[Rfam]
RNA: Small nucleolar RNA SNORD34
Organism: Nicotiana attenuata
RNA sequence: CAAGACCUAUGAUGGAAUAAGAUAAUAUGCCUACAUUGUCUGAUCAUUAUAACUUGAUUAAGCAAAUAUGGACUGAGGCCUUG
Numbered sequence: 001c002a003a004g005a006c007c008u009a010u011g012a013u014g015g016a017a018u019a020a021g022a023u024a025a026u027a028u029g030c031c032u033a034c035a036u037u038g039u040c041u042g043a044u045c046a047u048u049a050u051a052a053c054u055u056g057a058u059u060a061a062g063c064a065a066a067u068a069u070g071g072a073c074u075g076a077g078g079c080c081u082u083g
Base pairs, nucleotide, nucleotide: 001083002082004080006078007077